[Rfam]
RNA sequence: AACCAUUGGAGAGAUUCAUUGAAUUGAACACCGAAGGAGCAAACCCAUUAGGGUGAAACUCUCAGGUAAAAGGACAGUGGCUAAAUA
Numbered sequence: 001a002a003c004c005a006u007u008g009g010a011g012a013g014a015u016u017c018a019u020u021g022a023a024u025u026g027a028a029c030a031c032c033g034a035a036g037g038a039g040c041a042a043a044c045c046c047a048u049u050a051g052g053g054u055g056a057a058a059c060u061c062u063c064a065g066g067u068a069a070a071a072g073g074a075c076a077g078u079g080g081c082u083a084a085a086u087a
Base pairs, nucleotide, nucleotide: 001082003080004079005078006077007076008075015028016027017026018025030067031066032065033063034062037061038060039059043054044053
The family of this 87-nucleotide RNA from Faecalibacillus faecis is "Glycine riboswitch aptamer". A search with the family's covariance model found it, with a score of 60 bits. On this family, see Mandal et al., Science 2004: "A glycine-dependent riboswitch that uses cooperative binding to control gene expression".